RNA sequence: UGUUGUCCGCGGCCCUUUUUCUGUUGUACUACUGGAAACUGGUAAGAGCAGUGCAAUAUUAAAAGGGCAUUGGCUUGCA
Numbered sequence: 001u002g003u004u005g006u007c008c009g010c011g012g013c014c015c016u017u018u019u020u021c022u023g024u025u026g027u028a029c030u031a032c033u034g035g036a037a038a039c040u041g042g043u044a045a046g047a048g049c050a051g052u053g054c055a056a057u058a059u060u061a062a063a064a065g066g067g068c069a070u071u072g073g074c075u076u077g078c079a
Stems, first nucleotide, its partner, number of pairs: 001079003005074001007073003012068008022058009
Shown here is a 79-nucleotide sequence from Polypterus senegalus, a member of the family "mir-130 microRNA precursor family". Pairs were carried over by alignment from the consensus structure, which was predicted with PFOLD. Lineage of the source: Eukaryota > Opisthokonta > Actinopterygii > Polypteridae > Polypterus.